[Rfam]
RNA: Glycine riboswitch aptamer
RNA sequence: AACUCUGGAGAGCUCCUGCUUGGAUGGGCUGCAGGACACCAAAGGUGAAACUUCAAUGAGAAGUUAACUCUCAGGUUAAGGGACAGAGUU
Numbered sequence: 001a002a003c004u005c006u007g008g009a010g011a012g013c014u015c016c017u018g019c020u021u022g023g024a025u026g027g028g029c030u031g032c033a034g035g036a037c038a039c040c041a042a043a044g045g046u047g048a049a050a051c052u053u054c055a056a057u058g059a060g061a062a063g064u065u066a067a068c069u070c071u072c073a074g075g076u077u078a079a080g081g082g083a084c085a086g087a088g089u090u
Stems, first nucleotide, its partner, number of pairs: 001090007014036006038076003042071001045070001047068001051063002